The family of this 164-nucleotide RNA sequence from Marinomonas mediterranea is "Manganese Mn2+ riboswitch aptamer (yybP-ykoY)". Taxonomically the source falls in Marinomonas mediterranea (Bacteria, Oceanospirillales, Oceanospirillaceae, Marinomonas). From the family's description: This RNA was originally discovered in E. coli during a large scale screen and was named SraF. The family was later found to exist upstream of related families of protein genes in many bacteria, including the the yybP and ykoK genes in B. subtilis. The specific functions of these proteins are unknown, but this structured RNA element may be involved in their genetic regulation as a riboswitch. Rfam links the family to the GO term manganese ion binding. Pairs were carried over by alignment from the consensus structure.
RNA sequence: AUCCGAAUCUUAGGGGAGUAAUCUCUUUCUUAUUUUCAUUCAAUAUUCGAUGAGAAAAGAAGGUUUUCUAUCAACAUAAUUGAGCCUCAAUGCUCAUGGUAGAAAAGCCAAUUUAGCGCACUAUCGUUAAAGCGGUUGAUGAGACUUAAGACAGACACUUGGUU
Numbered sequence: 001a002u003c004c005g006a007a008u009c010u011u012a013g014g015g016g017a018g019u020a021a022u023c024u025c026u027u028u029c030u031u032a033u034u035u036u037c038a039u040u041c042a043a044u045a046u047u048c049g050a051u052g053a054g055a056a057a058a059g060a061a062g063g064u065u066u067u068c069u070a071u072c073a074a075c076a077u078a079a080u081u082g083a084g085c086c087u088c089a090a091u092g093c094u095c096a097u098g099g100u101a102g103a104a105a106a107g108c109c110a111a112u113u114u115a116g117c118g119c120a121c122u123a124u125c126g127u128u129a130a131a132g133c134g135g136u137u138g139a140u141g142a143g144a145c146u147u148a149a150g151a152c153a154g155a156c157a158c159u160u161g162g163u164u
Stems, first nucleotide, its partner, number of pairs: 025062003064106010081096005110164004